[Rfam]
RNA: tRNA
RNA sequence: GGGCGCUUAGCUCAGUUGGUAGAGCGGCUGGCUCUUAACCAGUAGGUCGUAGGUUCGAACCCUACAGCGCCUA
Numbered sequence: 001g002g003g004c005g006c007u008u009a010g011c012u013c014a015g016u017u018g019g020u021a022g023a024g025c026g027g028c029u030g031g032c033u034c035u036u037a038a039c040c041a042g043u044a045g046g047u048c049g050u051a052g053g054u055u056c057g058a059a060c061c062c063u064a065c066a067g068c069g070c071c072u073a
Stems, first nucleotide, its partner, number of pairs: 001072007010025004027043005049065005